The family of this 70-nucleotide RNA sequence from Neogale vison is "Small nucleolar RNA SNORD82". About the family: snoRNA U82 or Z25 is found in both humans and mice. Rfam links the family to the GO terms RNA processing and nucleolus. A reference for the family is Galardi et al. (2002), "Purified box C/D snoRNPs are able to reproduce site-specific 2'-O-methylation of target RNA in vitro", Mol Cell Biol.
[Rfam]
RNA sequence: AGCACAAGUGAUGAACAAUAAAGGGACUUAAUACUGAAACCUGAUGUGAUGUUAAUGAUAUCUGAUGUGC
Number, nucleotide and partner (000 for none) at each position: 001a000002g070003c069004a068005c067006a066007a000008g000009u000010g000011a000012u000013g000014a000015a000016c000017a000018a000019u000020a000021a000022a000023g000024g000025g000026a000027c000028u000029u000030a000031a000032u000033a000034c000035u000036g000037a000038a000039a000040c000041c000042u000043g000044a000045u000046g000047u000048g000049a000050u000051g000052u000053u000054a000055a000056u000057g000058a000059u000060a000061u000062c000063u000064g000065a000066u006067g005068u004069g003070c002